[Rfam]
RNA sequence: AGAAGGAAACUGUAAAGCUCAGGAGGGAUAGCGCCAUGGCUAGCUAGCUUAGCUAACGAGCACUUCUUCGAGUAUGUCAUAGCGCUAUCCAUCCUGAGUUUCACGGUUCCUUCUA
Numbered sequence: 001a002g003a004a005g006g007a008a009a010c011u012g013u014a015a016a017g018c019u020c021a022g023g024a025g026g027g028a029u030a031g032c033g034c035c036a037u038g039g040c041u042a043g044c045u046a047g048c049u050u051a052g053c054u055a056a057c058g059a060g061c062a063c064u065u066c067u068u069c070g071a072g073u074a075u076g077u078c079a080u081a082g083c084g085c086u087a088u089c090c091a092u093c094c095u096g097a098g099u100u101u102c103a104c105g106g107u108u109c110c111u112u113c114u115a
Stems, first nucleotide, its partner, number of pairs: 010106001016100009026090009